A member of the RNA family "Nuclear RNase P" from Bombardia bombarda, 384 nucleotides long. The source organism's lineage runs through Eukaryota, Opisthokonta, Pezizomycotina, leotiomyceta and Bombardia.
[Rfam]
RNA sequence: AACGCUGCGUUUCUAUGCUACAAUCGGAGAGUUUGCUGCGAAAGCAGCUUGCUUUCAACAUCCAAAUUCUGGCAUAUGAGAAAUUCGGAGAAAUCGCUUCACAACAGUCCUCUCCAUGCUCAAAGCUUCGGCUUCGACGUGUGCACGACACUGCCGGUGACGGCCUCACGUAAUUCUUGCGUGUGUAAUUGGCAUCAGAAAAGCAUGGCCUGGGUGCCCUUUUGCGCUGCGCAAGCGGCAAAGGAGGGCAUCCCAGUGUCCAUCUGGGAGGGUCAUUACGAAGCUUGUGGUCAAACACUUGAGUGCAAUACGCAGCGUGCUGGUCUUUUCUCUCCUUCACCGGGGGGGAAAAGGCUUGUACAAUUCGAUUCCGAUCAUUCUGUU
Dot-bracket structure: .............((((.........((((((..................))))))................)))).........(((((......((((....................................................((((....))))..(((((.......))))).((((..(((...........(((.....................................................)))........))).)))))))).................................((((.(((((((((((((((.....))))))))))))))).)))).......)))))...........
Numbered sequence: 001a002a003c004g005c006u007g008c009g010u011u012u013c014u015a016u017g018c019u020a021c022a023a024u025c026g027g028a029g030a031g032u033u034u035g036c037u038g039c040g041a042a043a044g045c046a047g048c049u050u051g052c053u054u055u056c057a058a059c060a061u062c063c064a065a066a067u068u069c070u071g072g073c074a075u076a077u078g079a080g081a082a083a084u085u086c087g088g089a090g091a092a093a094u095c096g097c098u099u100c101a102c103a104a105c106a107g108u109c110c111u112c113u114c115c116a117u118g119c120u121c122a123a124a125g126c127u128u129c130g131g132c133u134u135c136g137a138c139g140u141g142u143g144c145a146c147g148a149c150a151c152u153g154c155c156g157g158u159g160a161c162g163g164c165c166u167c168a169c170g171u172a173a174u175u176c177u178u179g180c181g182u183g184u185g186u187a188a189u190u191g192g193c194a195u196c197a198g199a200a201a202a203g204c205a206u207g208g209c210c211u212g213g214g215u216g217c218c219c220u221u222u223u224g225c226g227c228u229g230c231g232c233a234a235g236c237g238g239c240a241a242a243g244g245a246g247g248g249c250a251u252c253c254c255a256g257u258g259u260c261c262a263u264c265u266g267g268g269a270g271g272g273u274c275a276u277u278a279c280g281a282a283g284c285u286u287g288u289g290g291u292c293a294a295a296c297a298c299u300u301g302a303g304u305g306c307a308a309u310a311c312g313c314a315g316c317g318u319g320c321u322g323g324u325c326u327u328u329u330c331u332c333u334c335c336u337u338c339a340c341c342g343g344g345g346g347g348g349a350a351a352a353g354g355c356u357u358g359u360a361c362a363a364u365u366c367g368a369u370u371c372c373g374a375u376c377a378u379u380c381u382g383u384u
Stems, first nucleotide, its partner, number of pairs: 014076004027056006086373005097283004153164004167183005185279004191274003205263003317361004322356015

Rfam's curators write: Ribonuclease P (RNase P) is a ubiquitous endoribonuclease, found in archaea, bacteria and eukarya as well as chloroplasts and mitochondria. Its best characterised activity is the generation of mature 5'-ends of tRNAs by cleaving the 5'-leader elements of precursor-tRNAs. By type it is a ribozyme.